[Rfam]
RNA sequence: GCAAUAGAAUUGGAUUUCUCAAGGGUGGUCGGCCCGCUCCCAAUUAGAAAGGGGGUGAUGCCGCUUGACAGUUUUUGAAGCUUUGAUGCUAGCACUAUCAUUUGCCAGCUUAGUCAUGGCGAUUCUGUCAUUUCAUAACCAUAAAAAAUAAUCCACCCUUGAGUUAGCGCUCUGGUGGAUUAUUCUGCCCUUAGCCGACCCCUUAGAGGGAACCGCCUAUUGCUGGACCGGACAUGCUUCCAGCCAUGUUCG
Numbered sequence: 001g002c003a004a005u006a007g008a009a010u011u012g013g014a015u016u017u018c019u020c021a022a023g024g025g026u027g028g029u030c031g032g033c034c035c036g037c038u039c040c041c042a043a044u045u046a047g048a049a050a051g052g053g054g055g056u057g058a059u060g061c062c063g064c065u066u067g068a069c070a071g072u073u074u075u076u077g078a079a080g081c082u083u084u085g086a087u088g089c090u091a092g093c094a095c096u097a098u099c100a101u102u103u104g105c106c107a108g109c110u111u112a113g114u115c116a117u118g119g120c121g122a123u124u125c126u127g128u129c130a131u132u133u134c135a136u137a138a139c140c141a142u143a144a145a146a147a148a149u150a151a152u153c154c155a156c157c158c159u160u161g162a163g164u165u166a167g168c169g170c171u172c173u174g175g176u177g178g179a180u181u182a183u184u185c186u187g188c189c190c191u192u193a194g195c196c197g198a199c200c201c202c203u204u205a206g207a208g209g210g211a212a213c214c215g216c217c218u219a220u221u222g223c224u225g226g227a228c229c230g231g232a233c234a235u236g237c238u239u240c241c242a243g244c245c246a247u248g249u250u251c252g
Base pairs, nucleotide, nucleotide: 001223002222003221004220005219007217010212011198018163019162020161021160022159023158024157025156027153028152029151035057036056038055039054040053041052067129068128069127070126071125080095103121104120105119106118173187174186175185200210201209202208229252230251231250232249233248234247235246236245237243238242
The record is a 252-nucleotide RNA sequence from Neobacillus mesonae, which matches "BsrG" in Rfam. NCBI's taxonomy places the organism under Bacteria, Bacillota, Bacilli, Bacillaceae, Neobacillus. Pairs were carried over by alignment from the consensus structure, which was predicted with WAR. Rfam describes the family as follows. bsrE, bsrG and bsrH pair through intermolecular interactions with antisense sRNAs. They form type I toxin/antitoxin system that includes an mRNA encoding for a short, toxic peptide (bsrE, bsrG and bsrH) and an antitoxin that is comprised of an antisense RNA. bsrG encodes a 39-amino-acid toxin, and the 180 nucleotide antisense sRNA called SR4 acts as the antitoxin (they overlap by 123 nucleotides). The family has 6 seed sequences and 614 matches in Rfam 15.1.